The record is a 334-nucleotide RNA sequence from Ramlibacter montanisoli, which matches "Bacterial RNase P class A" in Rfam.
By type it is a ribozyme.
NCBI's taxonomy places the organism under Bacteria, Pseudomonadati, Betaproteobacteria, Burkholderiales, Ramlibacter.
A search with the family's covariance model found it, with a score of 196 bits.
About the family: Ribonuclease P (RNase P) is a ubiquitous endoribonuclease, found in archaea, bacteria and eukarya as well as chloroplasts and mitochondria. Its best characterised activity is the generation of mature 5'-ends of tRNAs by cleaving the 5'-leader elements of precursor-tRNAs. Cellular RNase Ps are ribonucleoproteins. RNA from bacterial RNase Ps retains its catalytic activity in the absence of the protein subunit, i.e. it is a ribozyme.
The base pairs follow the family's consensus structure, which is taken from published work.
RNA sequence: GAAGCACGCCAGGCCGCUGCUGGUGCAAGUGCCGAAAGGCCGCACUGGAGGAACGUCCGGACUGCAUAGGGCAGCGUAGCAGGCAACACCUGUCCACCGCGAGGUGAGGAUCAGAGCAACAGAGACGAGUCCCGUGGUUCGCGCAAGCGGGUCAUGGGGGUGAAACGGGCAAUCUCUACGCGCAGCAAUGCCAAAUAGGCCAGCGUCGACGUGGUCCCGCGGAGCUGGCGGGUAGGCAGCAUCGAGCCGUGGAGGCGACUCCCGGCCCAGAAGAAUGGCGGUCACAUCCGGGCAACCGGAUGCACAGAAUCCGGCGUAACGGCGAGCUUCACAC
Numbered sequence: 001g002a003a004g005c006a007c008g009c010c011a012g013g014c015c016g017c018u019g020c021u022g023g024u025g026c027a028a029g030u031g032c033c034g035a036a037a038g039g040c041c042g043c044a045c046u047g048g049a050g051g052a053a054c055g056u057c058c059g060g061a062c063u064g065c066a067u068a069g070g071g072c073a074g075c076g077u078a079g080c081a082g083g084c085a086a087c088a089c090c091u092g093u094c095c096a097c098c099g100c101g102a103g104g105u106g107a108g109g110a111u112c113a114g115a116g117c118a119a120c121a122g123a124g125a126c127g128a129g130u131c132c133c134g135u136g137g138u139u140c141g142c143g144c145a146a147g148c149g150g151g152u153c154a155u156g157g158g159g160g161u162g163a164a165a166c167g168g169g170c171a172a173u174c175u176c177u178a179c180g181c182g183c184a185g186c187a188a189u190g191c192c193a194a195a196u197a198g199g200c201c202a203g204c205g206u207c208g209a210c211g212u213g214g215u216c217c218c219g220c221g222g223a224g225c226u227g228g229c230g231g232g233u234a235g236g237c238a239g240c241a242u243c244g245a246g247c248c249g250u251g252g253a254g255g256c257g258a259c260u261c262c263c264g265g266c267c268c269a270g271a272a273g274a275a276u277g278g279c280g281g282u283c284a285c286a287u288c289c290g291g292g293c294a295a296c297c298g299g300a301u302g303c304a305c306a307g308a309a310u311c312c313g314g315c316g317u318a319a320c321g322g323c324g325a326g327c328u329u330c331a332c333a334c
Stems, first nucleotide, its partner, number of pairs: 001330005007324004012283007020048007053317003057314005062185004069216002074181005079093005094108001095106004109176002114174002116170002131159002134155009189238004199229006210221004246266004251262004